[Rfam]
RNA sequence: AAAAUAGAGAGCUAGGGUUCCGAUGUCAUUUAUUAGUGGCGUGACUGGUCCGAGAGCUUUCGACCUUGAAGUUUCAAGGUUACACGGCGGGACAAAAGCCCGGGAGAC
Numbered sequence: 001a002a003a004a005u006a007g008a009g010a011g012c013u014a015g016g017g018u019u020c021c022g023a024u025g026u027c028a029u030u031u032a033u034u035a036g037u038g039g040c041g042u043g044a045c046u047g048g049u050c051c052g053a054g055a056g057c058u059u060u061c062g063a064c065c066u067u068g069a070a071g072u073u074u075c076a077a078g079g080u081u082a083c084a085c086g087g088c089g090g091g092a093c094a095a096a097a098g099c100c101c102g103g104g105a106g107a108c
Stems, first nucleotide, its partner, number of pairs: 007061006015051002020048002022045001023042006062081008083103001085106001089101003